[Rfam]
RNA: Acido-Lenti-1 RNA
RNA sequence: CCCAGGGCUUACGCCCUGGGCUAUAAUCUGUCGCGCUGUUGGCGCU
Numbered sequence: 001c002c003c004a005g006g007g008c009u010u011a012c013g014c015c016c017u018g019g020g021c022u023a024u025a026a027u028c029u030g031u032c033g034c035g036c037u038g039u040u041g042g043c044g045c046u
Stems, first nucleotide, its partner, number of pairs: 001020008033045005